[Rfam]
RNA sequence: UUGUGUUACAGCUCCUAGAAUUUGUCUAGCACGUUUUCCCAUUUUUACUGGAAAACCCCU
Numbered sequence: 001u002u003g004u005g006u007u008a009c010a011g012c013u014c015c016u017a018g019a020a021u022u023u024g025u026c027u028a029g030c031a032c033g034u035u036u037u038c039c040c041a042u043u044u045u046u047a048c049u050g051g052a053a054a055a056c057c058c059c060u
Stems, first nucleotide, its partner, number of pairs: 033056007042047001

Rfam assigns this 60-nucleotide RNA from Propithecus coquereli to the family "U7 small nuclear RNA". The base pairs follow the family's consensus structure, which was predicted with PFOLD. Rfam describes the family as follows. Animal histone pre-mRNAs are spliced by a different mechanism than nuclear pre-mRNAs and self-splicing introns. This processing involves the U7 snRNP, which contains only one RNA species: U7. The 5' end of U7 RNA is thought to base-pair to a conserved spacer element downstream of the cleavage site in histone pre-mRNA. This family contains a number of annotated U7 pseudogenes. The match comes from Rfam's covariance-model search (44 bits). For this family Rfam cites "U7 snRNAs: a computational survey" (Marz et al., Genomics Proteomics Bioinformatics, 2007). Lineage of the source: Eukaryota > Deuterostomia > Gnathostomata > Sarcopterygii > Propithecus.